RNA sequence: GCACAACCACCUUCCACAACGGAUCGUGAGGCACGUACCUGCCUCUGAAAGGAUGAACAU
Numbered sequence: 001g002c003a004c005a006a007c008c009a010c011c012u013u014c015c016a017c018a019a020c021g022g023a024u025c026g027u028g029a030g031g032c033a034c035g036u037a038c039c040u041g042c043c044u045c046u047g048a049a050a051g052g053a054u055g056a057a058c059a060u
Stems, first nucleotide, its partner, number of pairs: 010052004015047002028045006

The family of this 60-nucleotide RNA from Bifidobacterium pullorum is "msiK RNA". The base pairs follow the family's consensus structure, which is taken from published work. Taxonomically the source falls in Bifidobacterium pullorum (Bacteria, Bacillati, Bifidobacteriales, Bifidobacteriaceae). The family has 120 seed sequences and 1,374 matches in Rfam 15.1. The family's RNA type in Rfam is cis-regulatory element. It scores 60 bits against the family's covariance model.